[Rfam]
RNA: Small nucleolar RNA Z161/Z228
Organism: Zea mays
RNA sequence: GGGCCAUAUGAUGAGACUUUGUGCAACUCACGACGGUCGUCUGAGACACUUUGUGUGUAAUGUUGCAGUCCUAUUUUCUCUGAUGCUC
Numbered sequence: 001g002g003g004c005c006a007u008a009u010g011a012u013g014a015g016a017c018u019u020u021g022u023g024c025a026a027c028u029c030a031c032g033a034c035g036g037u038c039g040u041c042u043g044a045g046a047c048a049c050u051u052u053g054u055g056u057g058u059a060a061u062g063u064u065g066c067a068g069u070c071c072u073a074u075u076u077u078c079u080c081u082g083a084u085g086c087u088c
Base pairs, nucleotide, nucleotide: 001088002087003086004085047055048054049053